A member of the RNA family "Lysine riboswitch aptamer" from Firmicutes bacterium CAG:102, 172 nucleotides long.

RNA sequence: AAGGAAGAUAGAGGUGCAAUGACGAUGAGUAUCCUCUCCCAAUAGAGCCGUGGGCGGCAGGAGGGGGAAAGGCGGCGUUGCCGAAGUGGUUUUUUCUGCCCAAGGGAAGAAGCUGCUGGGACAUUGCAAAAAAUGUAAUGUACUGUCACGGAUGUGGAGCGCUAUCGGAAUU
Numbered sequence: 001a002a003g004g005a006a007g008a009u010a011g012a013g014g015u016g017c018a019a020u021g022a023c024g025a026u027g028a029g030u031a032u033c034c035u036c037u038c039c040c041a042a043u044a045g046a047g048c049c050g051u052g053g054g055c056g057g058c059a060g061g062a063g064g065g066g067g068a069a070a071g072g073c074g075g076c077g078u079u080g081c082c083g084a085a086g087u088g089g090u091u092u093u094u095u096c097u098g099c100c101c102a103a104g105g106g107a108a109g110a111a112g113c114u115g116c117u118g119g120g121a122c123a124u125u126g127c128a129a130a131a132a133a134u135g136u137a138a139u140g141u142a143c144u145g146u147c148a149c150g151g152a153u154g155u156g157g158a159g160c161g162c163u164a165u166c167g168g169a170a171u172u
Base pairs, nucleotide, nucleotide: 007166008165009164010163011162016081017080018079019078020077021076023074024073033066034065035064036063037062038061039060085117086116087115088114089113090112091111092110093109094108095107096106118144119143121141122140123139124138125137126136127135128134146157147156148155149154